[Rfam]
RNA sequence: CCUUUGGAGCGUUAUACCAAACGAGAGUAGUUUUGUGAACGAGCGUAAGUGAGUGAACAGCAAAAUCGGACGCGAUGAAUUAGGAA
Dot-bracket structure: (((.....(((((........(((.....(((..((....................)))))....))))))))........)))..
Numbered sequence: 001c002c003u004u005u006g007g008a009g010c011g012u013u014a015u016a017c018c019a020a021a022c023g024a025g026a027g028u029a030g031u032u033u034u035g036u037g038a039a040c041g042a043g044c045g046u047a048a049g050u051g052a053g054u055g056a057a058c059a060g061c062a063a064a065a066u067c068g069g070a071c072g073c074g075a076u077g078a079a080u081u082a083g084g085a086a
Stems, first nucleotide, its partner, number of pairs: 001084003009073005022068003030061003035058002

RAGATH-18 RNA: an 86-nucleotide RNA sequence. Rfam describes the family as follows. Actinobacteria, Firmicutes, Fusobacteria, Thermotogae (1 example).